The record is a 62-nucleotide sequence from Shimazuella alba, which matches "Fluoride riboswitch aptamer (crcB RNA motif)" in Rfam. The match comes from Rfam's covariance-model search (40 bits).
[Rfam]
RNA sequence: CUUAACAUAGCCGAUGAAAUUCGCCACAAUUGCUGAUAAAAGCUGAUGACUCCUACCAGUAC
Numbered sequence: 001c002u003u004a005a006c007a008u009a010g011c012c013g014a015u016g017a018a019a020u021u022c023g024c025c026a027c028a029a030u031u032g033c034u035g036a037u038a039a040a041a042g043c044u045g046a047u048g049a050c051u052c053c054u055a056c057c058a059g060u061a062c
Stems, first nucleotide, its partner, number of pairs: 010025001012023002016053001018051001020049002032043003